[Rfam]
Small nucleolar RNA SNORA71: a 133-nucleotide sequence from Pipistrellus kuhlii. For this family Rfam cites "The family of box ACA small nucleolar RNAs is defined by an evolutionarily conserved secondary structure and ubiquitous sequence elements essential for RNA accumulation" (Ganot et al., Genes Dev, 1997). From the family's description: The members of this family belong to the H/ACA class of snoRNAs which bind a number of proteins (including dyskerin, Gar1p and Nop10p) to form snoRNP complexes. This class of snoRNAs are thought to guide the sites of modification of uridines to pseudouridines by forming direct base pairing interactions with substrate RNAs. This family includes U71 (SNORA71), ACA39 (SNORA39) and ACA60 (SNORA60). U71 and ACA60 are predicted to guide the pseudouridylation of U406 and U1004 in 18S rRNA respectively. There is currently no target RNA identified for ACA39. Rfam classes the family as an H/ACA-box small nucleolar RNA. Rfam 15.1 lists 1,805 matches to the family in 606 species.
RNA sequence: UGCUACAUUCAGACGUGAUCAUGUGCUGCCUGUACCCUGGUCAUUGAUAGCAAAGGGAGAAAAUCGCUGAAAAGCAUUUUCCCCAUGUUUGAAGGGCCCAGAUCUCCCUUCCAAACUCUGAAGCUUUCACACA
Numbered sequence: 001u002g003c004u005a006c007a008u009u010c011a012g013a014c015g016u017g018a019u020c021a022u023g024u025g026c027u028g029c030c031u032g033u034a035c036c037c038u039g040g041u042c043a044u045u046g047a048u049a050g051c052a053a054a055g056g057g058a059g060a061a062a063a064u065c066g067c068u069g070a071a072a073a074g075c076a077u078u079u080u081c082c083c084c085a086u087g088u089u090u091g092a093a094g095g096g097c098c099c100a101g102a103u104c105u106c107c108c109u110u111c112c113a114a115a116c117u118c119u120g121a122a123g124c125u126u127u128c129a130c131a132c133a
Base pairs, nucleotide, nucleotide: 001057003055004054008050009049015044016043017042018041019040020039021038023037025035066130068129069128070127072126073125074124075123087116088115089114090113091112092110093109094108095107096106